Shown here is an 89-nucleotide RNA sequence from Python bivittatus, a member of the family "Small nucleolar RNA SNORD70".
From the family's description: snoRNA HBII-234 belongs to the C/D family of snoRNAs. It is the human orthologue of the mouse MBII-234 and is predicted to guide 2'O-ribose methylation of the small 18S rRNA on position A512. It is hosted, together with HBII-95, by the core C/D box snoRNA protein encoding gene NOP5/NOP58.
Taxonomically the source falls in Python (Eukaryota, Deuterostomia, Euteleostomi, Pythonidae).
The pairing is the family consensus, mapped onto this sequence.

[Rfam]
RNA sequence: AUUUCUGUUGUCAGUGAUGUAUUGUUAGUGGAACUGAAUCACUGUGAUUGCAUACAACUUUUCGUCACUACCACUGAGACAACAGAGAA
Numbered sequence: 001a002u003u004u005c006u007g008u009u010g011u012c013a014g015u016g017a018u019g020u021a022u023u024g025u026u027a028g029u030g031g032a033a034c035u036g037a038a039u040c041a042c043u044g045u046g047a048u049u050g051c052a053u054a055c056a057a058c059u060u061u062u063c064g065u066c067a068c069u070a071c072c073a074c075u076g077a078g079a080c081a082a083c084a085g086a087g088a089a
Stems, first nucleotide, its partner, number of pairs: 002088011